[Rfam]
RNA sequence: CGGGUAAAACUCCUGCUUGUUACCGUUUCAUCUGGCCGAAGCCGGAUGUCGUUUUGGUGUCUGAUUCGGUAAGGAACCGGGAGCACCAUCUGCGUAGGCUCAGGGUUUAAGGCUUGCGCCGCCUACGGUCUUGGAUAGCCCCCGCCAGGCAGGGACCCCAAUCUUGCAGCAGGCGUGAUCACUCACGCCG
Numbered sequence: 001c002g003g004g005u006a007a008a009a010c011u012c013c014u015g016c017u018u019g020u021u022a023c024c025g026u027u028u029c030a031u032c033u034g035g036c037c038g039a040a041g042c043c044g045g046a047u048g049u050c051g052u053u054u055u056g057g058u059g060u061c062u063g064a065u066u067c068g069g070u071a072a073g074g075a076a077c078c079g080g081g082a083g084c085a086c087c088a089u090c091u092g093c094g095u096a097g098g099c100u101c102a103g104g105g106u107u108u109a110a111g112g113c114u115u116g117c118g119c120c121g122c123c124u125a126c127g128g129u130c131u132u133g134g135a136u137a138g139c140c141c142c143c144g145c146c147a148g149g150c151a152g153g154g155a156c157c158c159c160a161a162u163c164u165u166g167c168a169g170c171a172g173g174c175g176u177g178a179u180c181a182c183u184c185a186c187g188c189c190g
Stems, first nucleotide, its partner, number of pairs: 002158004012149004024051002029048008055088006061080003065076003092145003097140004105136010172189006
Dot-bracket structure: .((((......((((........((...((((((((....)))))))).))...(((((((((.(((......))).)))..))))))...(((..((((....((((((((((............))))))))))))))..))))))).....)))).............((((((......)))))).